RNA sequence: UCCUCCGCGAGGAGGAAUCUGAAGGAAGCCGGCGGUAAAUCUCUGGCCUGACGAACAGGAAGCGAAUUAGGCAGUUGGAUGUGGGUGAGUUUGCAUAACAAAACAAAGCCCUAAACUAUCCGAAACAUCCUGCUGUACAUUCGACAGGUAUAUGGAGAGAAAGUUUGCGUU
Number, nucleotide and partner (000 for none) at each position: 001u016002c015003c014004u013005c012006c011007g000008c000009g000010a000011g006012g005013a004014g003015g002016a001017a000018u000019c000020u000021g000022a000023a000024g000025g000026a000027a000028g171029c000030c169031g168032g000033c000034g000035g164036u163037a000038a000039a000040u158041c157042u156043c155044u154045g153046g149047c148048c147049u146050g145051a000052c000053g000054a000055a000056c000057a000058g000059g000060a000061a000062g000063c143064g142065a141066a140067u000068u000069a000070g000071g136072c135073a134074g000075u132076u000077g130078g129079a128080u127081g126082u000083g111084g110085g109086u108087g000088a000089g104090u103091u102092u101093g000094c000095a000096u000097a000098a000099c000100a000101a092102a091103a090104c089105a000106a000107a000108g086109c085110c084111c083112u000113a000114a000115a000116c000117u000118a000119u000120c000121c000122g000123a000124a000125a000126c081127a080128u079129c078130c077131u000132g075133c000134u073135g072136u071137a000138c000139a000140u066141u065142c064143g063144a000145c050146a049147g048148g047149u046150a000151u000152a000153u045154g044155g043156a042157g041158a040159g000160a000161a000162a000163g036164u035165u000166u000167g000168c031169g030170u000171u028
RNA: Group II catalytic intron D1-D4-3
Organism: Pedobacter sp. MC2016-24